A member of the RNA family "Ribosomal protein L20 leader" from Thomasclavelia ramosa, 122 nucleotides long. This family is a putative r-protein leader autoregulatory structure found in B. subtilis and other low-GC Gram-positive bacteria. It is located in the 5' untranslated regions of mRNAs encoding initiation factor 3 followed by ribosomal proteins L35 and L20 (infC-rpmI-rplT). By type it is a cis-regulatory leader. It scores 60 bits against the family's covariance model. Lineage of the source: Bacteria > Bacillati > Bacillota > Coprobacillaceae > Thomasclavelia ramosa.
[Rfam]
RNA sequence: AGUGGAAAGAAGAAGUGCCUACUUCUCGCCUGAUUGAUUAUGUCGAUAGGCAAAUGUCGCUAAGAUAAACUAUCUUAAUGUCAAUGUGUGGGUACUCAGUGUGCUCACUUUUUGUUUAAACU
Numbered sequence: 001a002g003u004g005g006a007a008a009g010a011a012g013a014a015g016u017g018c019c020u021a022c023u024u025c026u027c028g029c030c031u032g033a034u035u036g037a038u039u040a041u042g043u044c045g046a047u048a049g050g051c052a053a054a055u056g057u058c059g060c061u062a063a064g065a066u067a068a069a070c071u072a073u074c075u076u077a078a079u080g081u082c083a084a085u086g087u088g089u090g091g092g093u094a095c096u097c098a099g100u101g102u103g104c105u106c107a108c109u110u111u112u113u114g115u116u117u118a119a120a121c122u
Stems, first nucleotide, its partner, number of pairs: 011026006028051003034046004088108008